Rfam assigns this 230-nucleotide part of an RNA from Arthrobacter sunyaminii to the family "Bacterial large subunit ribosomal RNA".
Lineage of the source: Bacteria > Actinomycetota > Actinomycetes > Micrococcales > Arthrobacter.

RNA sequence: GAGUUAGUGUUACGUCGCGAGGUUAACCCGUGAGGGGAAGCCGUAGCGAAAGCGAGUCUGAACAGGGCGAUGCAGUGGCGUGAUCUAGACCCGAAGCGGAGUGAUCUACCCAUGGCCAGGUUGAAGCGCGUGUAAGAGCGCGUGGAGGACCGAACCCACUUCAGUUGAAAAUGGAGGGGAUGAGCUGUGGGUAGGGGUGAAAGGCCAAUCAAACUCCGUGAUAGCUGGUU
Numbered sequence: 001g002a003g004u005u006a007g008u009g010u011u012a013c014g015u016c017g018c019g020a021g022g023u024u025a026a027c028c029c030g031u032g033a034g035g036g037g038a039a040g041c042c043g044u045a046g047c048g049a050a051a052g053c054g055a056g057u058c059u060g061a062a063c064a065g066g067g068c069g070a071u072g073c074a075g076u077g078g079c080g081u082g083a084u085c086u087a088g089a090c091c092c093g094a095a096g097c098g099g100a101g102u103g104a105u106c107u108a109c110c111c112a113u114g115g116c117c118a119g120g121u122u123g124a125a126g127c128g129c130g131u132g133u134a135a136g137a138g139c140g141c142g143u144g145g146a147g148g149a150c151c152g153a154a155c156c157c158a159c160u161u162c163a164g165u166u167g168a169a170a171a172u173g174g175a176g177g178g179g180a181u182g183a184g185c186u187g188u189g190g191g192u193a194g195g196g197g198u199g200a201a202a203g204g205c206c207a208a209u210c211a212a213a214c215u216c217c218g219u220g221a222u223a224g225c226u227g228g229u230u
Base pairs, nucleotide, nucleotide: 005087006086007085009084010083011082012081013080014079015078016077017076018075021042022041023040024039027036028035029034046053047052056068057067058066059065090228091227093225097218098217099216100215101214102213106194107193108192109191110190111189112188113187114186115185116184117182119151120150121149122148126143127142128141129140130139131138155179156178157177159176160175161174162173163172196206197205198204